[Rfam]
RNA sequence: GACAGGCAAUCUGGAGAGUGUCAAAUAAUUUUUGACCACCGAAGGGGCACACGGAUAAUCGUUCAUCCGUAAAUCUCUCAGGUAAAAGGACAGAGGGGCGGAG
Numbered sequence: 001g002a003c004a005g006g007c008a009a010u011c012u013g014g015a016g017a018g019u020g021u022c023a024a025a026u027a028a029u030u031u032u033u034g035a036c037c038a039c040c041g042a043a044g045g046g047g048c049a050c051a052c053g054g055a056u057a058a059u060c061g062u063u064c065a066u067c068c069g070u071a072a073a074u075c076u077c078u079c080a081g082g083u084a085a086a087a088g089g090a091c092a093g094a095g096g097g098g099c100g101g102a103g
Base pairs, nucleotide, nucleotide: 007097010094011093012092013091020036021035022034023033038083039082040081041079042078045077046076047075051070052069053068054067055066056065

Overview:
A member of the RNA family "Glycine riboswitch aptamer" from Nitrosomonas cryotolerans, 103 nucleotides long. Rfam describes the family as follows. This family represents the bacterial glycine riboswitch. Glycine riboswitches usually consist of two metabolite-binding aptamers domains with similar structures in tandem. The aptamers cooperatively bind glycine to regulate the expression of downstream genes.